A member of the RNA family "Bacterial small signal recognition particle RNA" from Oleiphilus messinensis, 96 nucleotides long. The match comes from Rfam's covariance-model search (74 bits). The family's RNA type in Rfam is non-coding RNA gene. From the family's description: The signal recognition particle (SRP) is a universally conserved ribonucleoprotein involved in the co-translational targeting of proteins to membranes.
RNA sequence: UGCCGGUCCUCCCGCAACAUGAAACCGUGAACCCGGUCAGGUCCGGAAGGAAGCAGCCGUAGCGGUGGACUGUGUGCCGGGAUGUGGCUGGCAGAA
Numbered sequence: 001u002g003c004c005g006g007u008c009c010u011c012c013c014g015c016a017a018c019a020u021g022a023a024a025c026c027g028u029g030a031a032c033c034c035g036g037u038c039a040g041g042u043c044c045g046g047a048a049g050g051a052a053g054c055a056g057c058c059g060u061a062g063c064g065g066u067g068g069a070c071u072g073u074g075u076g077c078c079g080g081g082a083u084g085u086g087g088c089u090g091g092c093a094g095a096a
Stems, first nucleotide, its partner, number of pairs: 004090005010082005015074001017073003024066005034059004042051003
Notes:
Taxonomically the source falls in Oleiphilus (Bacteria, Pseudomonadati, Gammaproteobacteria, Oceanospirillales). Its Rfam clan is "SRP clan". Rfam links the family to the GO terms SRP-dependent cotranslational protein targeting to membrane, signal sequence recognition and signal recognition particle, plasma membrane targeting.